[Rfam]
RNA sequence: CAUAAGAAUAAGCCGAAUCCAGCCCAGGAGCGGGGGAACCAGAUAUUUUGGGGCGAACGUCAGACUCAUGGCAGCAUGAUACUGAAGCGGGUGGUCUUCUCUACCCGAGCCCGGCAGCUAACCUCGUAGGCGAAUAGAGAGAGGAGUU
Numbered sequence: 001c002a003u004a005a006g007a008a009u010a011a012g013c014c015g016a017a018u019c020c021a022g023c024c025c026a027g028g029a030g031c032g033g034g035g036g037a038a039c040c041a042g043a044u045a046u047u048u049u050g051g052g053g054c055g056a057a058c059g060u061c062a063g064a065c066u067c068a069u070g071g072c073a074g075c076a077u078g079a080u081a082c083u084g085a086a087g088c089g090g091g092u093g094g095u096c097u098u099c100u101c102u103a104c105c106c107g108a109g110c111c112c113g114g115c116a117g118c119u120a121a122c123c124u125c126g127u128a129g130g131c132g133a134a135u136a137g138a139g140a141g142a143g144g145a146g147u148u
Stems, first nucleotide, its partner, number of pairs: 012131003018029003030127006040050002051112003060085003089106004
The family of this 148-nucleotide sequence from Pseudoselenomonas ruminis is "c-di-AMP riboswitch aptamer (ydaO/yuaA leader)". The pairing is the family consensus, mapped onto this sequence.